[Rfam]
RNA: Fluoride riboswitch aptamer (crcB RNA motif)
Organism: Azomonas macrocytogenes
RNA sequence: UUUGCGAGUGGAGAUGGCAUUCCUCCUUUAACCGCCCCUGGGGCUGAUGAUGCCUACGUGAAC
Numbered sequence: 001u002u003u004g005c006g007a008g009u010g011g012a013g014a015u016g017g018c019a020u021u022c023c024u025c026c027u028u029u030a031a032c033c034g035c036c037c038c039u040g041g042g043g044c045u046g047a048u049g050a051u052g053c054c055u056a057c058g059u060g061a062a063c
Base pairs, nucleotide, nucleotide: 010026011025012024013023016054017053018052019051020050021049034044035043036042